[Rfam]
RNA sequence: GUGCCUUAAACUAAUGAGUAAGGAAAAUAACGCUGUCUAGUGGAAUAACUAGAAUAGCACUUAAUUACUCGAAUUUUUGAAAAGGGGCGACAGGUUACCCGCUUGAGUAGGUUCCACUACUUUUCGGAAUCCGCUCGUGUUGUAGCGACCUAGCCC
Numbered sequence: 001g002u003g004c005c006u007u008a009a010a011c012u013a014a015u016g017a018g019u020a021a022g023g024a025a026a027a028u029a030a031c032g033c034u035g036u037c038u039a040g041u042g043g044a045a046u047a048a049c050u051a052g053a054a055u056a057g058c059a060c061u062u063a064a065u066u067a068c069u070c071g072a073a074u075u076u077u078u079g080a081a082a083a084g085g086g087g088c089g090a091c092a093g094g095u096u097a098c099c100c101g102c103u104u105g106a107g108u109a110g111g112u113u114c115c116a117c118u119a120c121u122u123u124u125c126g127g128a129a130u131c132c133g134c135u136c137g138u139g140u141u142g143u144a145g146c147g148a149c150c151u152a153g154c155c156c
Base pairs, nucleotide, nucleotide: 004023005022006021007020008019033052034051035050038047039046055067056066057065085156086155087154088153092151093150094149095148096147098145101140102139104137105136106135107134108133112129113128114127115126
A member of the RNA family "U12 minor spliceosomal RNA" from Adineta ricciae, 156 nucleotides long.
The match comes from Rfam's covariance-model search (78 bits).
The family's RNA type in Rfam is spliceosomal small nuclear RNA.
The base pairs follow the family's consensus structure.
A reference for the family is Tarn and Steitz (1997), "Pre-mRNA splicing: the discovery of a new spliceosome doubles the challenge", Trends Biochem Sci.
NCBI's taxonomy places the organism under Eukaryota, Metazoa, Rotifera, Adinetida, Adineta.
Rfam links the family to the GO terms U12 snRNP, pre-mRNA branch point binding and mRNA branch site recognition.